Rfam assigns this 64-nucleotide RNA from Schmidtea mediterranea to the family "bantam microRNA precursor family". Rfam 15.1 lists 182 matches to the family in 182 species. The literature on the family includes a 2007 paper in Genome Biol by Weaver et al., "Computational and transcriptional evidence for microRNAs in the honey bee genome". Gene Ontology terms of the family: RISC complex and miRNA-mediated post-transcriptional gene silencing.
RNA sequence: UAUUGGUUUUACUAGUGAUCUAAGAAUGAUAUAUAAAAAUCUGAGAUCACUAUGAAAGCUGGUA
Numbered sequence: 001u002a003u004u005g006g007u008u009u010u011a012c013u014a015g016u017g018a019u020c021u022a023a024g025a026a027u028g029a030u031a032u033a034u035a036a037a038a039a040u041c042u043g044a045g046a047u048c049a050c051u052a053u054g055a056a057a058g059c060u061g062g063u064a
Stems, first nucleotide, its partner, number of pairs: 001064002004061007013052001016049006
Clan: mir-81 clan. Rfam's curators put it in the seed alignment.